[Rfam]
RNA sequence: GUGCCUGUGGGAUGAAGAGGUCCCUACAUUUACUUCCAUUUAUUCACUUUGUCAGCUAAUCAGUCAUACAUCUUUAGCUGAUCAUUAAGAAUGGGAAAAUG
Numbered sequence: 001g002u003g004c005c006u007g008u009g010g011g012a013u014g015a016a017g018a019g020g021u022c023c024c025u026a027c028a029u030u031u032a033c034u035u036c037c038a039u040u041u042a043u044u045c046a047c048u049u050u051g052u053c054a055g056c057u058a059a060u061c062a063g064u065c066a067u068a069c070a071u072c073u074u075u076a077g078c079u080g081a082u083c084a085u086u087a088a089g090a091a092u093g094g095g096a097a098a099a100u101g
Stems, first nucleotide, its partner, number of pairs: 035095006051082008
Overview: Shown here is a 101-nucleotide sequence from Eragrostis curvula, a member of the family "Small nucleolar RNA snoR99". The family has 9 seed sequences and 733 matches in Rfam 15.1. The family's consensus secondary structure was predicted with WAR. The match comes from Rfam's covariance-model search (75 bits). The literature on the family includes a 2002 paper in Curr Biol by Marker et al., "Experimental RNomics: identification of 140 candidates for small non-messenger RNAs in the plant Arabidopsis thaliana".